[Rfam]
RNA: FMN riboswitch aptamer (RFN element)
RNA sequence: GUAUUCUUUCGGGGCAGGGUGAAAUUCCCUACCGGCGGUAAGGGCGAUAGCCUUAAGUCCGUGACCCGCCUUAGUAGUUUUACUGCUAAGCGGUGGAGCUAGUGUGAUUCUAGCACCGACAGUUAAAGUCUGGAUGGGAGAAAGAAGAA
Numbered sequence: 001g002u003a004u005u006c007u008u009u010c011g012g013g014g015c016a017g018g019g020u021g022a023a024a025u026u027c028c029c030u031a032c033c034g035g036c037g038g039u040a041a042g043g044g045c046g047a048u049a050g051c052c053u054u055a056a057g058u059c060c061g062u063g064a065c066c067c068g069c070c071u072u073a074g075u076a077g078u079u080u081u082a083c084u085g086c087u088a089a090g091c092g093g094u095g096g097a098g099c100u101a102g103u104g105u106g107a108u109u110c111u112a113g114c115a116c117c118g119a120c121a122g123u124u125a126a127a128g129u130c131u132g133g134a135u136g137g138g139a140g141a142a143a144g145a146a147g148a149a
Stems, first nucleotide, its partner, number of pairs: 004146007017029003031129002033118002035062004057116002066093004098114005120132003